[Rfam]
RNA sequence: UUCAGGGACUUCUGCCGUAGGAGAGAUGACACCUUCUGUUGGUAAGGAAAACAUCAACAAAGAAAUUAGCAGUAGUUGUCAUCUUUCCUCGGUUGAAGCCCCUCCAUAG
Numbered sequence: 001u002u003c004a005g006g007g008a009c010u011u012c013u014g015c016c017g018u019a020g021g022a023g024a025g026a027u028g029a030c031a032c033c034u035u036c037u038g039u040u041g042g043u044a045a046g047g048a049a050a051a052c053a054u055c056a057a058c059a060a061a062g063a064a065a066u067u068a069g070c071a072g073u074a075g076u077u078g079u080c081a082u083c084u085u086u087c088c089u090c091g092g093u094u095g096a097a098g099c100c101c102c103u104c105c106a107u108a109g
Base pairs, nucleotide, nucleotide: 005101006100007099009098010097011096012095014093015092016091017090019089020088021087023085024084025083026082027081028080029079
RNA: MIR5225 microRNA precursor family
Organism: Vigna radiata